SAM riboswitch aptamer (S box leader): a 118-nucleotide sequence from Sinanaerobacter chloroacetimidivorans.

RNA sequence: ACCUUAUCAAGAGAGGCAGAGGGAAUAGGCCCGAUGAAGCCCAGCAACCUACGUAUUCAUAUUCAUGUGAAUAAAAAAGGUGCUAAGUCCUACGGAAUUUUAUUCUGAGAGAUGAGGA
Number, nucleotide and partner (000 for none) at each position: 001a000002c117003c116004u115005u114006a113007u112008c111009a000010a000011g000012a000013g042014a000015g041016g040017c039018a000019g000020a000021g032022g031023g030024a000025a000026u092027a091028g090029g089030c023031c022032c021033g000034a000035u000036g000037a000038a000039g017040c016041c015042c013043a084044g083045c082046a081047a000048c080049c079050u076051a000052c000053g000054u000055a000056u000057u000058c000059a000060u000061a000062u000063u000064c000065a000066u000067g000068u000069g000070a000071a000072u000073a000074a000075a000076a050077a000078a000079g049080g048081u046082g045083c044084u043085a000086a000087g000088u110089c029090c028091u027092a026093c107094g106095g105096a104097a103098u102099u000100u000101u000102a098103u097104u096105c095106u094107g093108a000109g000110a088111g008112a007113u006114g005115a004116g003117g002118a000
Pairs were carried over by alignment from the consensus structure, which is taken from published work. Rfam links the family to the GO term regulation of gene expression.